[Rfam]
RNA sequence: UAGUAAAAUGAUGCUCUACCAUCUUUCGGGACUGACUUCAUAAUGGAGAAACUUUGACUUGUUACUGAUUGCUA
Numbered sequence: 001u002a003g004u005a006a007a008a009u010g011a012u013g014c015u016c017u018a019c020c021a022u023c024u025u026u027c028g029g030g031a032c033u034g035a036c037u038u039c040a041u042a043a044u045g046g047a048g049a050a051a052c053u054u055u056g057a058c059u060u061g062u063u064a065c066u067g068a069u070u071g072c073u074a
Stems, first nucleotide, its partner, number of pairs: 001074006
RNA: Small nucleolar RNA SNORD2